[Rfam]
RNA sequence: CCUUGUAUCAGGUGCUCUAUUGUAUGACUGCUAUCAAAUAGAGCAUGCUUGUACAAAGGA
Numbered sequence: 001c002c003u004u005g006u007a008u009c010a011g012g013u014g015c016u017c018u019a020u021u022g023u024a025u026g027a028c029u030g031c032u033a034u035c036a037a038a039u040a041g042a043g044c045a046u047g048c049u050u051g052u053a054c055a056a057a058g059g060a
Stems, first nucleotide, its partner, number of pairs: 003056006010049002012046007020038002023036001

The family of this 60-nucleotide RNA from Monodelphis domestica is "mir-7371 microRNA precursor family". Rfam's curators put it in the seed alignment. The family's consensus secondary structure was predicted with RNAalifold.